Overview:
Rfam assigns this 64-nucleotide RNA sequence from Acidomonas methanolica to the family "Fluoride riboswitch aptamer (crcB RNA motif)". It scores 53 bits against the family's covariance model. Lineage of the source: Bacteria > Pseudomonadota > Acetobacterales > Acetobacteraceae > Acidomonas methanolica.

[Rfam]
RNA sequence: AUUCGGAUAGGAGAUGGGGUUCCUCCUUUUAACCGCCGCAUCGGCUGAUGACUCCUGGCAUGAC
Numbered sequence: 001a002u003u004c005g006g007a008u009a010g011g012a013g014a015u016g017g018g019g020u021u022c023c024u025c026c027u028u029u030u031a032a033c034c035g036c037c038g039c040a041u042c043g044g045c046u047g048a049u050g051a052c053u054c055c056u057g058g059c060a061u062g063a064c
Stems, first nucleotide, its partner, number of pairs: 010026004016055006035045003